RNA sequence: CCUGAUGUUCCGUCAUCAGUAGCCUACUGACACAUGCGUCACUGGUAACGGUGGGGUGUGAAGCUGUCAGGACAAUGAAACCGGAUCUUCGGAUCGCAUGAAACCGUGAGGUUACAUGUAAUCUGCCAGCAUCAGGCGGAGGAGGUC
Numbered sequence: 001c002c003u004g005a006u007g008u009u010c011c012g013u014c015a016u017c018a019g020u021a022g023c024c025u026a027c028u029g030a031c032a033c034a035u036g037c038g039u040c041a042c043u044g045g046u047a048a049c050g051g052u053g054g055g056g057u058g059u060g061a062a063g064c065u066g067u068c069a070g071g072a073c074a075a076u077g078a079a080a081c082c083g084g085a086u087c088u089u090c091g092g093a094u095c096g097c098a099u100g101a102a103a104c105c106g107u108g109a110g111g112u113u114a115c116a117u118g119u120a121a122u123c124u125g126c127c128a129g130c131a132u133c134a135g136g137c138g139g140a141g142g143a144g145g146u147c
Base pairs, nucleotide, nucleotide: 002019003018004017005016006015007014028069029068030067031066032065033060034059035058036057037056039054040053041052042051043050044049082096083095084094086092087091097118098117099116100115104111105110122140123139124138125137126136127135